[Rfam]
RNA sequence: UGAGUAGGAAAGAUGAUCGCGAGUGCUUAGUCAUUCGAGGAAAGUCCGGGCUCCACAGGGCAGAGUGCUGGAUAACGUCCAGCGAGGGUGACCUCAGGGAAAGUGCCACAGAAAUGCAGACCGCCUGAUGAAUAUCAGGUAAGGAUGGAACGGUGCGGUAAGAGCGCACCAGCAGUCAGGUGACUGACUGGCUAGGUAAACCCCACUUGGAGCAAGACCAAAUAGGGAAGGGAUGAAGCGGCCCGCUGAGCCUUCCGGGUUGUGUCGCUGGAGCUGUCAGGCAACUGGCAGCCUAGAUAGAUGAUCGUCACCGCAGCUUUGCGGUACAGAACUCGGCUUAUUGAAUACUCAUAAC
Numbered sequence: 001u002g003a004g005u006a007g008g009a010a011a012g013a014u015g016a017u018c019g020c021g022a023g024u025g026c027u028u029a030g031u032c033a034u035u036c037g038a039g040g041a042a043a044g045u046c047c048g049g050g051c052u053c054c055a056c057a058g059g060g061c062a063g064a065g066u067g068c069u070g071g072a073u074a075a076c077g078u079c080c081a082g083c084g085a086g087g088g089u090g091a092c093c094u095c096a097g098g099g100a101a102a103g104u105g106c107c108a109c110a111g112a113a114a115u116g117c118a119g120a121c122c123g124c125c126u127g128a129u130g131a132a133u134a135u136c137a138g139g140u141a142a143g144g145a146u147g148g149a150a151c152g153g154u155g156c157g158g159u160a161a162g163a164g165c166g167c168a169c170c171a172g173c174a175g176u177c178a179g180g181u182g183a184c185u186g187a188c189u190g191g192c193u194a195g196g197u198a199a200a201c202c203c204c205a206c207u208u209g210g211a212g213c214a215a216g217a218c219c220a221a222a223u224a225g226g227g228a229a230g231g232g233a234u235g236a237a238g239c240g241g242c243c244c245g246c247u248g249a250g251c252c253u254u255c256c257g258g259g260u261u262g263u264g265u266c267g268c269u270g271g272a273g274c275u276g277u278c279a280g281g282c283a284a285c286u287g288g289c290a291g292c293c294u295a296g297a298u299a300g301a302u303g304a305u306c307g308u309c310a311c312c313g314c315a316g317c318u319u320u321g322c323g324g325u326a327c328a329g330a331a332c333u334c335g336g337c338u339u340a341u342u343g344a345a346u347a348c349u350c351a352u353a354a355c
Stems, first nucleotide, its partner, number of pairs: 001351006010342002012309007020037006042339003046336005051212004058244004063208005068082005083097001084095004098203002103201002105197003121144002123140007152170006172192001173190007216266003219262001226256006237247003273292008